[Rfam]
RNA sequence: CAUGUGCCGGUGGGGUCCCUCAGCCUGGCCUGUGCCCUCUCGCAAUCUGGGUCCCCUCAGGGGAUGUCGGAGAGCUGGUUUCGGCCCGAUCCCGCAGGCCAGGCGGAGGGACCCCACUGGUGCACA
Numbered sequence: 001c002a003u004g005u006g007c008c009g010g011u012g013g014g015g016u017c018c019c020u021c022a023g024c025c026u027g028g029c030c031u032g033u034g035c036c037c038u039c040u041c042g043c044a045a046u047c048u049g050g051g052u053c054c055c056c057u058c059a060g061g062g063g064a065u066g067u068c069g070g071a072g073a074g075c076u077g078g079u080u081u082c083g084g085c086c087c088g089a090u091c092c093c094g095c096a097g098g099c100c101a102g103g104c105g106g107a108g109g110g111a112c113c114c115c116a117c118u119g120g121u122g123c124a125c126a
Stems, first nucleotide, its partner, number of pairs: 003124002006121001008119003012115010023104003027100008
RNA: mir-9193 microRNA precursor family
Organism: Myotis myotis